[Rfam]
RNA sequence: UGUCACAGACCUGUAGACACGAGCUUGUGUUGCCUUUCACCACAAGUUCGGAUCUACGGGUUUGUGGCAG
Numbered sequence: 001u002g003u004c005a006c007a008g009a010c011c012u013g014u015a016g017a018c019a020c021g022a023g024c025u026u027g028u029g030u031u032g033c034c035u036u037u038c039a040c041c042a043c044a045a046g047u048u049c050g051g052a053u054c055u056a057c058g059g060g061u062u063u064g065u066g067g068c069a070g
Base pairs, nucleotide, nucleotide: 002068003067004066005065006064007063010060011059012058015055016054017053020050021049022048023047024046025045026044027043028042029041
This 70-nucleotide RNA sequence from Lepisosteus oculatus belongs to the Rfam family "mir-10 microRNA precursor family". Its family is annotated with RISC complex and miRNA-mediated post-transcriptional gene silencing in the Gene Ontology. Lineage of the source: Eukaryota > Metazoa > Euteleostomi > Actinopteri > Lepisosteus. The literature on the family includes a 2001 paper in Science by Lee and Ambros, "An extensive class of small RNAs in Caenorhabditis elegans".